[Rfam]
RNA sequence: CUCCAGUGAUGACCCCUUUUUUGUGCCACGUGUCUGGGCCACUGACAUCUAGUGAUGGGAAUGAGGAACUGAGGAG
Numbered sequence: 001c002u003c004c005a006g007u008g009a010u011g012a013c014c015c016c017u018u019u020u021u022u023g024u025g026c027c028a029c030g031u032g033u034c035u036g037g038g039c040c041a042c043u044g045a046c047a048u049c050u051a052g053u054g055a056u057g058g059g060a061a062u063g064a065g066g067a068a069c070u071g072a073g074g075a076g
Stems, first nucleotide, its partner, number of pairs: 001076004
The family of this 76-nucleotide sequence from Albula goreensis is "Small nucleolar RNA SNORD66". The literature on the family includes a 2001 paper in EMBO J by Huttenhofer et al., "RNomics: an experimental approach that identifies 201 candidates for novel, small, non-messenger RNAs in mouse". Rfam's curators write: snoRNA HBII-142 is part of the C/D family of snoRNAs. It is the human orthologue of the mouse MBII-142 snoRNA and is predicted to guide 2'O-ribose methylation of small 18S rRNA at residue C1272. Rfam 15.1 lists 1,346 matches to the family in 614 species.